[Rfam]
RNA sequence: GUUUGUCCAGUGCCCCUUUUAUAUUGUACUACUGGUGACCCUGCUAGAAAAGCAGUGCAAUGUUAAAAGGGCAUUGGCCAGAAA
Numbered sequence: 001g002u003u004u005g006u007c008c009a010g011u012g013c014c015c016c017u018u019u020u021a022u023a024u025u026g027u028a029c030u031a032c033u034g035g036u037g038a039c040c041c042u043g044c045u046a047g048a049a050a051a052g053c054a055g056u057g058c059a060a061u062g063u064u065a066a067a068a069g070g071g072c073a074u075u076g077g078c079c080a081g082a083a084a
Base pairs, nucleotide, nucleotide: 002083003082005079007077008076009075010074012072013071014070015069017067018066019065022062023061024060025059026058027057028056029055030054
Dot-bracket structure: .((.(.((((.((((.(((..(((((((((.......................)))))))))..))).)))).)))).)..)).
The family of this 84-nucleotide RNA sequence from Cottoperca gobio is "mir-130 microRNA precursor family". Pairs were carried over by alignment from the consensus structure, which was predicted with PFOLD. A reference for the family is Lagos-Quintana et al. (2002), "Identification of tissue-specific microRNAs from mouse", Curr Biol.